[Rfam]
The family of this 109-nucleotide sequence from Caulobacter mirabilis is "Cauldobacter sRNA CC3552". The match comes from Rfam's covariance-model search (99 bits). It is annotated as a small RNA. The source organism's lineage runs through Bacteria, Pseudomonadota, Alphaproteobacteria, Caulobacterales and Caulobacter.

RNA sequence: GGAGGCGGCGACGCCCCCCCCGACUUGAGGCUGGCGAGAGCCAGCCUGCCGUCUCCGCACCCUUUUCUCGAUGAUGCAAACUUCAAGGGGCGGGCCCAAGGGUCCGCCC
Numbered sequence: 001g002g003a004g005g006c007g008g009c010g011a012c013g014c015c016c017c018c019c020c021c022g023a024c025u026u027g028a029g030g031c032u033g034g035c036g037a038g039a040g041c042c043a044g045c046c047u048g049c050c051g052u053c054u055c056c057g058c059a060c061c062c063u064u065u066u067c068u069c070g071a072u073g074a075u076g077c078a079a080a081c082u083u084c085a086a087g088g089g090g091c092g093g094g095c096c097c098a099a100g101g102g103u104c105c106g107c108c109c
Stems, first nucleotide, its partner, number of pairs: 001056010012022002029046007088109009